[Rfam]
RNA sequence: CUUCAACGAGCCCAGCCACAGCGGCCGUUCACGGUCCUGGCCAUAGGCGGCCAGCAGCGCCUGGGCCUC
Numbered sequence: 001c002u003u004c005a006a007c008g009a010g011c012c013c014a015g016c017c018a019c020a021g022c023g024g025c026c027g028u029u030c031a032c033g034g035u036c037c038u039g040g041c042c043a044u045a046g047g048c049g050g051c052c053a054g055c056a057g058c059g060c061c062u063g064g065g066c067c068u069c
Stems, first nucleotide, its partner, number of pairs: 015025003029064002032059002037054003041050002
ASpks TB sRNA: a 69-nucleotide sequence from Streptomyces sp. PT12. It scores 78 bits against the family's covariance model. The family's RNA type in Rfam is antisense RNA. NCBI's taxonomy places the organism under Bacteria, Actinomycetota, Kitasatosporales, Streptomycetaceae, Streptomyces.